Overview
A member of the RNA family "Hepatitis C virus J7880 RNA" from Orthohepacivirus hominis, 123 nucleotides long. By type it is a cis-regulatory element. For this family Rfam cites "Functionally conserved architecture of hepatitis C virus RNA genomes" (Mauger et al., Proc Natl Acad Sci U S A, 2015).
RNA sequence: GUCAAACUCCGGGCGUCGCAGGUGACGGCAAAGCUCCUCUCUAUUGAGGAUGCCUGCGACCUCACCCCCCCACACUCGGCUCGCUCAAAGUUUGGGUAUGGGGCAAAAGAUGUCCGGAGUCAU
Numbered sequence: 001g002u003c004a005a006a007c008u009c010c011g012g013g014c015g016u017c018g019c020a021g022g023u024g025a026c027g028g029c030a031a032a033g034c035u036c037c038u039c040u041c042u043a044u045u046g047a048g049g050a051u052g053c054c055u056g057c058g059a060c061c062u063c064a065c066c067c068c069c070c071c072a073c074a075c076u077c078g079g080c081u082c083g084c085u086c087a088a089a090g091u092u093u094g095g096g097u098a099u100g101g102g103g104c105a106a107a108a109g110a111u112g113u114c115c116g117g118a119g120u121c122a123u
Stems, first nucleotide, its partner, number of pairs: 006120005012114006022065004028057002035050005068103004074097004078092003